[Rfam]
RNA: FMN riboswitch aptamer (RFN element)
RNA sequence: AACUAUCUUUGAGGCAGGUGAGAGUCCUGACCGGUGGUAUAGUCCACAAACCUUUUUAGGCCGAUUCGGUGAAAUUCCGAAACCGACGGUAUUCCAACAUUUGAUAUCUGAUUGAGCAGUUUGUGAGCAGAGUUAAAUAGUUGGUUAGUCCGGAUGGGAAAAGAUGGAA
Numbered sequence: 001a002a003c004u005a006u007c008u009u010u011g012a013g014g015c016a017g018g019u020g021a022g023a024g025u026c027c028u029g030a031c032c033g034g035u036g037g038u039a040u041a042g043u044c045c046a047c048a049a050a051c052c053u054u055u056u057u058a059g060g061c062c063g064a065u066u067c068g069g070u071g072a073a074a075u076u077c078c079g080a081a082a083c084c085g086a087c088g089g090u091a092u093u094c095c096a097a098c099a100u101u102u103g104a105u106a107u108c109u110g111a112u113u114g115a116g117c118a119g120u121u122u123g124u125g126a127g128c129a130g131a132g133u134u135a136a137a138u139a140g141u142u143g144g145u146u147a148g149u150c151c152g153g154a155u156g157g158g159a160a161a162a163g164a165u166g167g168a169a
Base pairs, nucleotide, nucleotide: 003167004166005165006164007163008162009161010160016028017027018026032085033084034047035046036045037044042083043082051060052059065081066080067079068078069077087152088151089150